[Rfam]
RNA sequence: GUAAUAUAUGAUAUGGUCUCUUAGCUUUUAACUAAAAAAACUAAGAGACAUCUCUUAUAUCUCUUAUUUAAUAGACGUUUCUUAGCUUUUUUAGUUAAAAACUAAGACAUUGUAUCCUAUAUUAC
Numbered sequence: 001g002u003a004a005u006a007u008a009u010g011a012u013a014u015g016g017u018c019u020c021u022u023a024g025c026u027u028u029u030a031a032c033u034a035a036a037a038a039a040a041c042u043a044a045g046a047g048a049c050a051u052c053u054c055u056u057a058u059a060u061c062u063c064u065u066a067u068u069u070a071a072u073a074g075a076c077g078u079u080u081c082u083u084a085g086c087u088u089u090u091u092u093a094g095u096u097a098a099a100a101a102c103u104a105a106g107a108c109a110u111u112g113u114a115u116c117c118u119a120u121a122u123u124a125c
Stems, first nucleotide, its partner, number of pairs: 001125008010116008019107006026100014041085007
This 125-nucleotide sequence from Brassica oleracea belongs to the Rfam family "MIR9563 microRNA precursor family".
It scores 94 bits against the family's covariance model.
Pairs were carried over by alignment from the consensus structure, which was predicted with RNAalifold.